[Rfam]
RNA sequence: UUUGUCAACGGUACCGGACCGAAGGGAGGAUAAGGAGUUGACAGACUCACUUCA
Numbered sequence: 001u002u003u004g005u006c007a008a009c010g011g012u013a014c015c016g017g018a019c020c021g022a023a024g025g026g027a028g029g030a031u032a033a034g035g036a037g038u039u040g041a042c043a044g045a046c047u048c049a050c051u052u053c054a
Stems, first nucleotide, its partner, number of pairs: 001045009
Dot-bracket structure: (((((((((...........................))))))))).........

The record is a 54-nucleotide RNA sequence from Mycolicibacterium sp. P9-64, which matches "Bacillus-plasmid RNA" in Rfam. NCBI's taxonomy places the organism under Bacteria, Actinomycetota, Mycobacteriales, Mycobacterium, Mycobacterium (subgen. Mycolicibacterium). The match comes from Rfam's covariance-model search (60 bits).